[Rfam]
RNA sequence: UCGGGCGGAACGCCGAAUCCUGCCGCCGCCCGUACACCCACCUAGAACGCACGGCAGGAGCGGGGGAACCAGGUAAGUCGCCAGGCCGGAUGUUUCGGACAUAUCGGUACGGCUCGGGGUGAAGUCGCGCCCGUCAGGACGCGACCGGGCAACUCCCGCCCGAACCCGACAGCUCACCUCGCAGGCGCCGGAGAGGAAAUUC
Numbered sequence: 001u002c003g004g005g006c007g008g009a010a011c012g013c014c015g016a017a018u019c020c021u022g023c024c025g026c027c028g029c030c031c032g033u034a035c036a037c038c039c040a041c042c043u044a045g046a047a048c049g050c051a052c053g054g055c056a057g058g059a060g061c062g063g064g065g066g067a068a069c070c071a072g073g074u075a076a077g078u079c080g081c082c083a084g085g086c087c088g089g090a091u092g093u094u095u096c097g098g099a100c101a102u103a104u105c106g107g108u109a110c111g112g113c114u115c116g117g118g119g120u121g122a123a124g125u126c127g128c129g130c131c132c133g134u135c136a137g138g139a140c141g142c143g144a145c146c147g148g149g150c151a152a153c154u155c156c157c158g159c160c161c162g163a164a165c166c167c168g169a170c171a172g173c174u175c176a177c178c179u180c181g182c183a184g185g186c187g188c189c190g191g192a193g194a195g196g197a198a199a200u201u202c
Base pairs, nucleotide, nucleotide: 011187012186013185014184018059019058020057021056022055023054024053025052060182061181062180063179064178065177070116117167118166119165125144126143127142128141147161148160149159150158

Shown here is a 202-nucleotide RNA from Streptomyces sp. 3214.6, a member of the family "c-di-AMP riboswitch aptamer (ydaO/yuaA leader)". The match comes from Rfam's covariance-model search (67 bits). Its family is annotated with regulation of gene expression and cyclic-di-AMP binding in the Gene Ontology.